[Rfam]
RNA sequence: GAAGGUUUGGCCCUUCGGAGUCGCCCUGCGGGGGGAGGCUCCAAACCGCCGCAUGCUGCGAGAGCGGUGACGCGAUCGUGGUGAGCGAUGUGGAAAAGGCGCCUUGCAGGCGUCAGGU
Numbered sequence: 001g002a003a004g005g006u007u008u009g010g011c012c013c014u015u016c017g018g019a020g021u022c023g024c025c026c027u028g029c030g031g032g033g034g035g036a037g038g039c040u041c042c043a044a045a046c047c048g049c050c051g052c053a054u055g056c057u058g059c060g061a062g063a064g065c066g067g068u069g070a071c072g073c074g075a076u077c078g079u080g081g082u083g084a085g086c087g088a089u090g091u092g093g094a095a096a097a098g099g100c101g102c103c104u105u106g107c108a109g110g111c112g113u114c115a116g117g118u
Base pairs, nucleotide, nucleotide: 001016002015003014004013005012017042018041019040020039021038022037024035025034026033027032047117049093050092051091052090053089054088055082056081058079059078060077064073065072098114099113100112101111102110103109
RNA: Group II catalytic intron D1-D4-2
Organism: Kitasatospora aureofaciens